[Rfam]
RNA sequence: CCAAAGCUCUAUGAACAAAUGGAUAAAAUUUCGUUUUUAAUUUAGUCUAUAUGAGUUAUUGAAAGUAAAGCGGCAGUGUCGGUUUCUUGUUUGCUCAGGAAAUUGGUUAUUGCAGCUUU
Numbered sequence: 001c002c003a004a005a006g007c008u009c010u011a012u013g014a015a016c017a018a019a020u021g022g023a024u025a026a027a028a029u030u031u032c033g034u035u036u037u038u039a040a041u042u043u044a045g046u047c048u049a050u051a052u053g054a055g056u057u058a059u060u061g062a063a064a065g066u067a068a069a070g071c072g073g074c075a076g077u078g079u080c081g082g083u084u085u086c087u088u089g090u091u092u093g094c095u096c097a098g099g100a101a102a103u104u105g106g107u108u109a110u111u112g113c114a115g116c117u118u119u
Base pairs, nucleotide, nucleotide: 008023009022010021011020012019067119068118069117070116071115073113074112075111076110077109078108080105081104082103084101085100086099087098088097
The family of this 119-nucleotide sequence from Beta vulgaris is "Plastid-psbA-1 3UTR RNA". From the family's description: Plastid psbA-1 is a non-coding RNA (ncRNA) present in plastids. The family's RNA type in Rfam is cis-regulatory element. The organism belongs to Beta vulgaris, within Eukaryota.